RNA: mir-15 microRNA precursor family
RNA sequence: CCUUGGAGUAAAGUAGCAGCACAUAAUGGUUUGUGGAUUUUGAAAAGUGCAGGCCAUAUUGUGCUGCCUCAAAAUACAAGGG
Numbered sequence: 001c002c003u004u005g006g007a008g009u010a011a012a013g014u015a016g017c018a019g020c021a022c023a024u025a026a027u028g029g030u031u032u033g034u035g036g037a038u039u040u041u042g043a044a045a046a047g048u049g050c051a052g053g054c055c056a057u058a059u060u061g062u063g064c065u066g067c068c069u070c071a072a073a074a075u076a077c078a079a080g081g082g
Base pairs, nucleotide, nucleotide: 001082002081003080004079006077013070016067017066018065019064020063021062022061023060026057027056028055029054030053031052032051033050034049035048